[Rfam]
RNA: c-di-GMP-I riboswitch aptamer
RNA sequence: AAUACCUGCAGCAAACCUGUCAAAGACAGGGACGAAAAGCUGUAGGGUCUAAGGUGCUUUUAAACACUAUGAUAGCCUGGCUGCCGCA
Dot-bracket structure: ...........(...((((((...))))))...)...((((..((((((....(((........)))...)))..)))))))......
Numbered sequence: 001a002a003u004a005c006c007u008g009c010a011g012c013a014a015a016c017c018u019g020u021c022a023a024a025g026a027c028a029g030g031g032a033c034g035a036a037a038a039g040c041u042g043u044a045g046g047g048u049c050u051a052a053g054g055u056g057c058u059u060u061u062a063a064a065c066a067c068u069a070u071g072a073u074a075g076c077c078u079g080g081c082u083g084c085c086g087c088a
Stems, first nucleotide, its partner, number of pairs: 012034001016030006038082004044078003047073003054067003